[Rfam]
RNA sequence: CUCACCCAGGGCUCCUCUAGCUCAAGGGGCAGGCCCGAGCCCUGCGCCCGCCCCGAAGCGGUCCAGCCCACCCCCCCACACACCCCCGACGGGGCGCCCCAUCCCCAGGGGCUCCGCACUGGCCCCCACCGAGGCAGGGGACCUGACCGGCUCGGAGCUCGGCUGGAUGUUACAGGCGUGCAAA
Numbered sequence: 001c002u003c004a005c006c007c008a009g010g011g012c013u014c015c016u017c018u019a020g021c022u023c024a025a026g027g028g029g030c031a032g033g034c035c036c037g038a039g040c041c042c043u044g045c046g047c048c049c050g051c052c053c054c055g056a057a058g059c060g061g062u063c064c065a066g067c068c069c070a071c072c073c074c075c076c077c078a079c080a081c082a083c084c085c086c087c088g089a090c091g092g093g094g095c096g097c098c099c100c101a102u103c104c105c106c107a108g109g110g111g112c113u114c115c116g117c118a119c120u121g122g123c124c125c126c127c128a129c130c131g132a133g134g135c136a137g138g139g140g141a142c143c144u145g146a147c148c149g150g151c152u153c154g155g156a157g158c159u160c161g162g163c164u165g166g167a168u169g170u171u172a173c174a175g176g177c178g179u180g181c182a183a184a
Base pairs, nucleotide, nucleotide: 008043009042010041011040012039013038014037018033020030021029022028023027044179045178046177047176048175050173061168062167063166064165065164068111069110113156114155115154116153120145121143122142124140125139126138127137157163158162
About this RNA:
The family of this 184-nucleotide RNA sequence from Odocoileus virginianus is "Spi-1 (PU.1) 5' UTR regulatory element". About the family: Spi-1 regulates myeloid gene expression during haemopoietic development. This family represents a regulatory element found in the 5' UTR of Spi-1 mRNA which is able to inhibit the translation Spi-1 transcripts by 8-fold. Mutations in this regulatory region of the 5' UTR can lead to overexpression of Spi-1 which has been linked to erythroleukemic transformation. It scores 107 bits against the family's covariance model. The base pairs follow the family's consensus structure, which is taken from published work. Rfam 15.1 lists 131 matches to the family in 128 species. Rfam links the family to the GO term translation repressor activity. Rfam classes the family as a cis-regulatory element.